The record is a 266-nucleotide RNA from Paenibacillus thalictri, which matches "Bacterial large signal recognition particle RNA" in Rfam. Rfam's curators write: The signal recognition particle (SRP) is a universally conserved ribonucleoprotein involved in the co-translational targeting of proteins to membranes. The match comes from Rfam's covariance-model search (199 bits). The family's RNA type in Rfam is non-coding RNA gene. Lineage of the source: Bacteria > Bacillati > Bacilli > Paenibacillaceae > Paenibacillus. The base pairs follow the family's consensus structure, which is taken from published work.
Nucleotides: 266
Stems, first nucleotide, its partner, number of pairs: 001266006009058003012030004017025001019023001035055005064259003068255003073250005081243004086238004093234002097228005104221002107218003115213004120208004124201006130192002133190004139182005149174004157166003
Number, partner (000 for none) and nucleotide at each position: 001266c002265c003264g004263u005262g006261c007000u008000a009058g010057a011056c012030g013029g014028g015027g016000a017025g018000g019023u020000a021000g022000c023019g024000g025017u026000g027015c028014c029013c030012u031000g032000u033000a034000a035055c036054u037053c038052g039051c040000a041000a042000u043000c044000c045000g046000c047000u048000a049000u050000a051039g052038c053037g054036g055035g056011g057010u058009u059000g060000a061000a062000u063000u064259c065258c066257u067000a068255c069254a070253a071000g072000c073250g074249g075248u076247a077246u078000u079000g080000u081243c082242g083241a084240u085000g086238u087237g088236a089235g090000g091000u092000u093234u094233g095000g096000g097228u098227u099226u100225u101224a102000a103000a104221g105220c106000u107218g108217g109216u110000g111000u112000u113000g114000a115213g116212a117211g118210c119000c120208g121207g122206g123205u124201c125200c126199u127198c128197c129196g130192c131191a132000a133190u134189g135188g136187a137000u138000g139182c140181c141180u142179g143178u144000g145000a146000a147000u148000c149174u150173g151172g152171u153000c154000a155000g156000g157166u158165u159164c160000g161000g162000a163000a164159g165158a166157a167000a168000g169000c170000a171152g172151c173150c174149a175000u176000a177000a178143g179142c180141g181140g182139g183000a184000u185000g186000u187136u188135u189134c190133a191131u192130g193000u194000g195000c196129c197128g198127g199126g200125g201124g202000g203000u204000u205123g206122c207121c208120u209000u210118g211117u212116u213115u214000g215000a216109g217108c218107c219000a220105g221104c222000g223000a224101u225100a226099a227098a228097a229000a230000u231000u232000c233094c234093g235089c236088u237087u238086g239000g240084a241083u242082c243081g244000c245000a246077a247076u248075a249074u250073c251000a252000a253070u254069u255068g256000c257066a258065g259064g260000u261006g262005c263004a264003c265002g266001g